[Rfam]
About this RNA: c-di-AMP riboswitch aptamer (ydaO/yuaA leader): a 138-nucleotide sequence from Paenibacillus sp. J31TS4.
RNA sequence: AAUUGAACAAAGCCGAAUUUCGCUAGAAAACGGGGGAACCACUAAAGAUAUAGGGGUGAAUUUUGUCCUUGAAGGACAAAUAGGGUGCCUGUGACCCGAAUCCGUCAGCUAACCUCGUAGGCUUACUUUCAGGAACCA
Number, nucleotide and partner (000 for none) at each position: 001a000002a000003u000004u000005g000006a000007a000008c000009a000010a000011a123012g122013c121014c120015g000016a000017a000018u029019u028020u027021c000022g000023c000024u000025a000026g000027a020028a019029a018030a118031c117032g116033g115034g114035g113036g000037a000038a000039c000040c053041a000042c000043u000044a000045a000046a000047g000048a000049u000050a000051u000052a000053g040054g103055g102056g101057u000058g000059a000060a000061u000062u080063u079064u078065g077066u000067c000068c000069u000070u000071g000072a000073a000074g000075g000076a000077c065078a064079a063080a062081u000082a000083g097084g096085g095086u094087g000088c000089c000090u000091g000092u000093g000094a086095c085096c084097c083098g000099a000100a000101u056102c055103c054104g000105u000106c000107a000108g000109c000110u000111a000112a000113c035114c034115u033116c032117g031118u030119a000120g014121g013122c012123u011124u000125a000126c000127u000128u000129u000130c000131a000132g000133g000134a000135a000136c000137c000138a000
The match comes from Rfam's covariance-model search (94 bits).
Lineage of the source: Bacteria > Bacillota > Bacilli > Paenibacillaceae > Paenibacillus.